[Rfam]
The family of this 244-nucleotide RNA sequence from Limosilactobacillus secaliphilus is "T-box leader". Gene Ontology term of the family: tRNA binding. The match comes from Rfam's covariance-model search (102 bits). Uncharged tRNA acts as the effector for transcription antitermination of genes in the T-box leader family. T-boxes are found upstream of many aminoacyl-tRNA synthetase genes and some amino acid biosynthetic genes usually in Gram-positive bacteria. The base pairs follow the family's consensus structure, which is taken from published work. Taxonomically the source falls in Limosilactobacillus (Bacteria, Bacillati, Bacilli, Lactobacillaceae).
RNA sequence: AGAAACACGAUGAAGGGGAAAGUAAUCUUCCUGGUCAGUGCAAAGCGAGCCUAUGUCAGUGUGAGUUAGGCCACGGUCAGAAAGAUGAAAGUAGCCCCGGAGUGACUAGAACGACCAUCCUGGAAGUUUUAGGCGGGUACGCCCGUUAUAGCGCCACCGUAUCUGAUUUUUUCACGUACGGAUUGAGGCACUACCAGUGAUGGUGGUGUAAAUGAAGGUGGUAACACGCCCACGCGUCCUUUCU
Numbered sequence: 001a002g003a004a005a006c007a008c009g010a011u012g013a014a015g016g017g018g019a020a021a022g023u024a025a026u027c028u029u030c031c032u033g034g035u036c037a038g039u040g041c042a043a044a045g046c047g048a049g050c051c052u053a054u055g056u057c058a059g060u061g062u063g064a065g066u067u068a069g070g071c072c073a074c075g076g077u078c079a080g081a082a083a084g085a086u087g088a089a090a091g092u093a094g095c096c097c098c099g100g101a102g103u104g105a106c107u108a109g110a111a112c113g114a115c116c117a118u119c120c121u122g123g124a125a126g127u128u129u130u131a132g133g134c135g136g137g138u139a140c141g142c143c144c145g146u147u148a149u150a151g152c153g154c155c156a157c158c159g160u161a162u163c164u165g166a167u168u169u170u171u172u173c174a175c176g177u178a179c180g181g182a183u184u185g186a187g188g189c190a191c192u193a194c195c196a197g198u199g200a201u202g203g204u205g206g207u208g209u210a211a212a213u214g215a216a217g218g219u220g221g222u223a224a225c226a227c228g229c230c231c232a233c234g235c236g237u238c239c240u241u242u243c244u
Stems, first nucleotide, its partner, number of pairs: 007103002015098004025086005038074003049071005106132007134145003188209007215241004226237004